[Rfam]
RNA sequence: UGGGUGGUCAACAAGCGCGGGCCUGGCGGAGCGUGGCGGCGCGCGGAGACCGCGAGGCGACCGGGAGAGGCAGGGCCCCCAGCAGCGCGCCCCUCGGCUAGGCCGGGAGCCGCGCCAGUCGGAGCCCCCGGCCGACCGCGGCCCGCCUGCCUCUCAGCGUCCAUCCGUUCGUAGUGCAGCCAGCGGGCAUGACCGACCCACCAGGGGCGCCGCCACCGGCGCUCGCAGGCCGCGGGUGAAGAAGAAAGUCCGGCCCCGCUCGGCCUGGAGCGAGGAGGUGGUUCGGAGCGAGGAGGUGGCCCAGAGCGAGAAGGUGGCCCGGAGCGAGGAGAUGACUCGGAGCGAGGAGGAGACCGGGGAGGAAAUG
Numbered sequence: 001u002g003g004g005u006g007g008u009c010a011a012c013a014a015g016c017g018c019g020g021g022c023c024u025g026g027c028g029g030a031g032c033g034u035g036g037c038g039g040c041g042c043g044c045g046g047a048g049a050c051c052g053c054g055a056g057g058c059g060a061c062c063g064g065g066a067g068a069g070g071c072a073g074g075g076c077c078c079c080c081a082g083c084a085g086c087g088c089g090c091c092c093c094u095c096g097g098c099u100a101g102g103c104c105g106g107g108a109g110c111c112g113c114g115c116c117a118g119u120c121g122g123a124g125c126c127c128c129c130g131g132c133c134g135a136c137c138g139c140g141g142c143c144c145g146c147c148u149g150c151c152u153c154u155c156a157g158c159g160u161c162c163a164u165c166c167g168u169u170c171g172u173a174g175u176g177c178a179g180c181c182a183g184c185g186g187g188c189a190u191g192a193c194c195g196a197c198c199c200a201c202c203a204g205g206g207g208c209g210c211c212g213c214c215a216c217c218g219g220c221g222c223u224c225g226c227a228g229g230c231c232g233c234g235g236g237u238g239a240a241g242a243a244g245a246a247a248g249u250c251c252g253g254c255c256c257c258g259c260u261c262g263g264c265c266u267g268g269a270g271c272g273a274g275g276a277g278g279u280g281g282u283u284c285g286g287a288g289c290g291a292g293g294a295g296g297u298g299g300c301c302c303a304g305a306g307c308g309a310g311a312a313g314g315u316g317g318c319c320c321g322g323a324g325c326g327a328g329g330a331g332a333u334g335a336c337u338c339g340g341a342g343c344g345a346g347g348a349g350g351a352g353a354c355c356g357g358g359g360a361g362g363a364a365a366u367g
Stems, first nucleotide, its partner, number of pairs: 020104008038093002041090002043053004061082001063080003067076001144352001146350003150346001167188005205224008257272005
The family of this 367-nucleotide RNA sequence from Propithecus coquereli is "Bag-1 internal ribosome entry site (IRES)". NCBI's taxonomy places the organism under Eukaryota, Amniota, Lemuriformes, Indriidae, Propithecus. From the family's description: This family represents the bag-1 internal ribosome entry site (IRES). When expressed the BAG-1 protein is known to enhance the anti-apoptotic properties of Bcl-2. Although bag-1 translation usually occurs via a cap-dependent mechanism it has been found to contain a IRES in its 5' UTR. Translation via the IRES has been found to be common following heat shock when cap-dependent scanning is compromised. The family has 15 seed sequences and 248 matches in Rfam 15.1.